[Rfam]
RNA sequence: CGAAAAUUUCAGCCGAGAUCCGUUCCGUGGAACGGAUGCGGGGGACCCAUGCACCAAGGGGCGCAUUCCGGCAGAUGCCGGAUAGGGAACUUCCACUCCCGAGCCCGUCAGCUAACCUCGUAGGCAUCUGGAAGGGCACGA
Dot-bracket structure: ...........(((...((((((((....))))))))((((((....(.........)(((.....((((........))))..((((........))))...))).........)))))).)))................

Rfam assigns this 141-nucleotide RNA sequence from Geobacter argillaceus to the family "c-di-AMP riboswitch aptamer (ydaO/yuaA leader)".
A search with the family's covariance model found it, with a score of 82 bits.
NCBI's taxonomy places the organism under Bacteria, Thermodesulfobacteriota, Desulfuromonadia, Geobacteraceae, Geobacter.
A reference for the family is Barrick et al. (2004), "New RNA motifs suggest an expanded scope for riboswitches in bacterial genetic control", Proc Natl Acad Sci U S A.